[Rfam]
This 102-nucleotide RNA sequence from Metabacillus sediminilitoris belongs to the Rfam family "Glycine riboswitch aptamer".
NCBI's taxonomy places the organism under Bacteria, Bacillota, Bacilli, Caryophanales, Metabacillus.
This family represents the bacterial glycine riboswitch.
RNA sequence: GGACGCACCUCUGGAGAGCGCGUAUAUAGAGUACGCCACCAAAGGGGAAGACUCUAUGAAUAAUGGAGUUAAACUCUCAGGUAAAAGGACAGAGAAGGGUAG
Numbered sequence: 001g002g003a004c005g006c007a008c009c010u011c012u013g014g015a016g017a018g019c020g021c022g023u024a025u026a027u028a029g030a031g032u033a034c035g036c037c038a039c040c041a042a043a044g045g046g047g048a049a050g051a052c053u054c055u056a057u058g059a060a061u062a063a064u065g066g067a068g069u070u071a072a073a074c075u076c077u078c079a080g081g082u083a084a085a086a087g088g089a090c091a092g093a094g095a096a097g098g099g100u101a102g
Base pairs, nucleotide, nucleotide: 006097009094010093011092012091013090020036021035022034023033038082039081040080042077045076046075047074051069052068053067054066055065056064057063